The record is a 132-nucleotide RNA, which matches "RT-3 RNA" in Rfam. It is one of the family's seed sequences.
RNA sequence: CAUCGGUUCUACGGCACCGCCGACGUGUCGGCAUCGCAGUGACCGAGGGAGAUGCGCCGCACUCAUGGAGUGAAAAAUCAAGGAGUGGGUAGAGUUUGGUAGGUCCCAUCGGACUCGAAGAAGUCAGACCCC
Numbered sequence: 001c002a003u004c005g006g007u008u009c010u011a012c013g014g015c016a017c018c019g020c021c022g023a024c025g026u027g028u029c030g031g032c033a034u035c036g037c038a039g040u041g042a043c044c045g046a047g048g049g050a051g052a053u054g055c056g057c058c059g060c061a062c063u064c065a066u067g068g069a070g071u072g073a074a075a076a077a078u079c080a081a082g083g084a085g086u087g088g089g090u091a092g093a094g095u096u097u098g099g100u101a102g103g104u105c106c107c108a109u110c111g112g113a114c115u116c117g118a119a120g121a122a123g124u125c126a127g128a129c130c131c132c
Stems, first nucleotide, its partner, number of pairs: 003046005012039001014037002019032005048058002060072004087131004092125002095122003102115005